[Rfam]
RNA sequence: AUAGAAGAUAAUGGGGCCACAGCAGAAGCAUUCAUGUUGCAGCCCUUGUGAGAUUCAAGUGAAUCUGUGAAUUCUGCU
Numbered sequence: 001a002u003a004g005a006a007g008a009u010a011a012u013g014g015g016g017c018c019a020c021a022g023c024a025g026a027a028g029c030a031u032u033c034a035u036g037u038u039g040c041a042g043c044c045c046u047u048g049u050g051a052g053a054u055u056c057a058a059g060u061g062a063a064u065c066u067g068u069g070a071a072u073u074c075u076g077c078u
Base pairs, nucleotide, nucleotide: 013046014045015044016043017042021078022077023076024075025074026073027072028040029039030038051066052065053064054063055062056061
Mammalian CPEB3 ribozyme: a 78-nucleotide sequence from Dasypus novemcinctus. Rfam's curators put it in the seed alignment. Taxonomically the source falls in Dasypus (Eukaryota, Metazoa, Chordata, Cingulata). The mammalian CPEB3 ribozyme is a self cleaving RNA located in the second intron of the CPEB3 gene which belongs to a family of genes regulating messenger RNA polyadenylation.